[Rfam]
RNA sequence: AAAGGAUCAAUACCAAACUUCUUAAUAGAACAAGAAGUUUGGUAUUGAUCCAUUUGGU
Number, nucleotide and partner (000 for none) at each position: 001a054002a053003a000004g051005g050006a049007u048008c047009a046010a045011u044012a043013c042014c041015a000016a000017a000018c000019u036020u035021c034022u033023u032024a000025a000026u000027a000028g000029a000030a000031c000032a023033a022034g021035a020036a019037g000038u000039u000040u000041g014042g013043u012044a011045u010046u009047g008048a007049u006050c005051c004052a000053u002054u001055u000056g000057g000058u000
This 58-nucleotide RNA from Camphora micrantha belongs to the Rfam family "Plastid-psbA-3 3UTR RNA".
For this family Rfam cites "Retrograde signaling in plants: A critical review focusing on the GUN pathway and beyond" (Richter et al., Plant Commun, 2023).
The family is grouped with related families in Rfam's "Plastid-psbA 3UTR RNA clan".
Rfam classes the family as a cis-regulatory element.
Rfam describes the family as follows. Plastid psbA-3 is a non-coding RNA (ncRNA) present in plastids. It was identified in inverted repeat sequences in the 3 prime untranslate region (3UTR) of photosystem II quinone-binding protein (psbA).